Rfam assigns this 167-nucleotide sequence from Firmicutes bacterium CAG:103 to the family "Lysine riboswitch aptamer".
[Rfam]
RNA sequence: AAGCAUGAUAGAGGCGCGGAAGUCAUCAGUACCCUCGCUCACCGGCAGGUAACCGGGAGGGGAAAGGGGCAGCCGCCGAAGGGUCUCGCAGGUUCCUGCCGCGGGAUUGCCUGGGCCGUCGGAGAACAUCCGCCGGACUGCCGCAUUCGCGGAGCGCUGUCAUUGAC
Numbered sequence: 001a002a003g004c005a006u007g008a009u010a011g012a013g014g015c016g017c018g019g020a021a022g023u024c025a026u027c028a029g030u031a032c033c034c035u036c037g038c039u040c041a042c043c044g045g046c047a048g049g050u051a052a053c054c055g056g057g058a059g060g061g062g063a064a065a066g067g068g069g070c071a072g073c074c075g076c077c078g079a080a081g082g083g084u085c086u087c088g089c090a091g092g093u094u095c096c097u098g099c100c101g102c103g104g105g106a107u108u109g110c111c112u113g114g115g116c117c118g119u120c121g122g123a124g125a126a127c128a129u130c131c132g133c134c135g136g137a138c139u140g141c142c143g144c145a146u147u148c149g150c151g152g153a154g155c156g157c158u159g160u161c162a163u164u165g166a167c
Stems, first nucleotide, its partner, number of pairs: 006162006016076004022070003032061005080112003083107007091099001113139002116136003120132004141152004
Dot-bracket structure: .....((((((....((((..(((.......(((((....................)))))......)))..))))...((((((((((.(.......).)))))))..)))((.(((.((((.....)))).))).)).((((....))))....)))))).....
It scores 78 bits against the family's covariance model. The base pairs follow the family's consensus structure, which is taken from published work.